Source information:
MIR164 microRNA precursor family: a 66-nucleotide sequence from Jatropha curcas.
RNA sequence: UGGAGAAGGGGAGCACGUGCAAAGAGGAGGGUUUAAUUUGUUUUGCACGUGCCCUGCUUCUCCAAC
Numbered sequence: 001u002g003g004a005g006a007a008g009g010g011g012a013g014c015a016c017g018u019g020c021a022a023a024g025a026g027g028a029g030g031g032u033u034u035a036a037u038u039u040g041u042u043u044u045g046c047a048c049g050u051g052c053c054c055u056g057c058u059u060c061u062c063c064a065a066c
Base pairs, nucleotide, nucleotide: 001064002063003062004061005060006059007058008057010055011054013052014051015050016049017048018047019046020045021044022043023042024041028033

Rfam links the family to the GO terms RISC complex and miRNA-mediated post-transcriptional gene silencing. On this family, see Reinhart et al., Genes Dev 2002: "MicroRNAs in plants".